[Rfam]
RNA sequence: GUCCAGGUACGGGGACAUGGUGCCGGGUACUAUCGCCGGAAAGAUUGUCGGAGGCGUGUGUUCGCUGAGCGGGGUUCUUGUCAUCGCAUUGCCAGUGCCUGUCAUCGUCUCCAAC
Numbered sequence: 001g002u003c004c005a006g007g008u009a010c011g012g013g014g015a016c017a018u019g020g021u022g023c024c025g026g027g028u029a030c031u032a033u034c035g036c037c038g039g040a041a042a043g044a045u046u047g048u049c050g051g052a053g054g055c056g057u058g059u060g061u062u063c064g065c066u067g068a069g070c071g072g073g074g075u076u077c078u079u080g081u082c083a084u085c086g087c088a089u090u091g092c093c094a095g096u097g098c099c100u101g102u103c104a105u106c107g108u109c110u111c112c113a114a115c
Base pairs, nucleotide, nucleotide: 001115002114006111009108010107011106012105014103015102016101017100019098022096023095038078039077040076041075051063052062
Potassium channel RNA editing signal: a 115-nucleotide RNA from Zootermopsis nevadensis. The family's consensus secondary structure is taken from published work. NCBI's taxonomy places the organism under Eukaryota, Dicondylia, Neoptera, Termopsinae, Zootermopsis. From the family's description: This family represents a group of sequences related to the human potassium channel Kv1.1 hairpin element which directs the efficient modification of an adenosine to inosine by an adenosine deaminase acting on RNA (ADAR). The ADAR modification causes an isoleucine/valine recoding event which lies in the ion-conducting pore of the potassium channel. It is thought that this editing event targets the process of fast inactivation and allows a more rapid recovery from inactivation at negative potentials. Rfam 15.1 lists 14,095 matches to the family in 1,000 species. Its family is annotated with adenosine to inosine editing in the Gene Ontology. Rfam classes the family as a cis-regulatory element.